[Rfam]
RNA sequence: GCCAAAUGAUGUCAAUUAGAAUGGCAUUAGCUCUCAGGGCAAAGAUGACCUUCAUCUAUCACCCCAUUCUGAUGGCU
Numbered sequence: 001g002c003c004a005a006a007u008g009a010u011g012u013c014a015a016u017u018a019g020a021a022u023g024g025c026a027u028u029a030g031c032u033c034u035c036a037g038g039g040c041a042a043a044g045a046u047g048a049c050c051u052u053c054a055u056c057u058a059u060c061a062c063c064c065c066a067u068u069c070u071g072a073u074g075g076c077u
Base pairs, nucleotide, nucleotide: 001076002075003074004073030040031039032038033037
RNA: Small nucleolar RNA SNORD83
Organism: Neodrepanis coruscans